[Rfam]
Nucleotides: 125
Stems, first nucleotide, its partner, number of pairs: 002124014017109015033093007042084006
Number, partner (000 for none) and nucleotide at each position: 001000a002124g003123a004122a005121u006120a007119u008118a009117a010116g011115a012114a013113c014112u015111u016000a017109u018108u019107u020106c021105u022104u023103a024102a025101c026100u027099u028098u029097u030096a031095a032000c033093u034092a035091a036090a037089a038088a039087a040000g041000c042084u043083a044082a045081g046080a047079a048000a049000c050000g051000a052000u053000u054000c055000u056000u057000a058000a059000a060000u061000a062000a063000g064000a065000g066000u067000u068000u069000u070000a071000g072000g073000a074000g075000c076000c077000g078000a079047u080046u081045c082044u083043u084042a085000a086000u087039u088038u089037u090036u091035u092034u093033a094000a095031u096030u097029a098028a099027a100026a101025g102024u103023u104022a105021a106020g107019a108018g109017a110000c111015a112014g113013g114012u115011u116010c117009u118008u119007a120006u121005a122004u123003u124002c125000c